[Rfam]
RNA: Ribosomal S15 leader
RNA sequence: CGUGUCGGCUGAAUCAGAGAUUGGCUGGCACAAACUUAAACCUCAAACUCUUUAGGAGAGAAUUAUGUCUCUGAAUGCAGAAACUAAAGCAGCAAUCGUUGCUGAAUAUGCACGUUGCGAA
Numbered sequence: 001c002g003u004g005u006c007g008g009c010u011g012a013a014u015c016a017g018a019g020a021u022u023g024g025c026u027g028g029c030a031c032a033a034a035c036u037u038a039a040a041c042c043u044c045a046a047a048c049u050c051u052u053u054a055g056g057a058g059a060g061a062a063u064u065a066u067g068u069c070u071c072u073g074a075a076u077g078c079a080g081a082a083a084c085u086a087a088a089g090c091a092g093c094a095a096u097c098g099u100u101g102c103u104g105a106a107u108a109u110g111c112a113c114g115u116u117g118c119g120a121a
Base pairs, nucleotide, nucleotide: 007026008025009024010023011022012021052075053074055072056071057070058069